[Rfam]
RNA sequence: CGUGUGGUGUUUGGCAAUUUGACCAAAUAGCGACACGGCCUAACCGAGGU
Numbered sequence: 001c002g003u004g005u006g007g008u009g010u011u012u013g014g015c016a017a018u019u020u021g022a023c024c025a026a027a028u029a030g031c032g033a034c035a036c037g038g039c040c041u042a043a044c045c046g047a048g049g050u
Stems, first nucleotide, its partner, number of pairs: 001037005007031002011026004015021001

The family of this 50-nucleotide RNA sequence from Motilimonas pumila is "L31-Gammaproteobacteria ribosomal protein leader".
The organism belongs to Motilimonas, within Bacteria.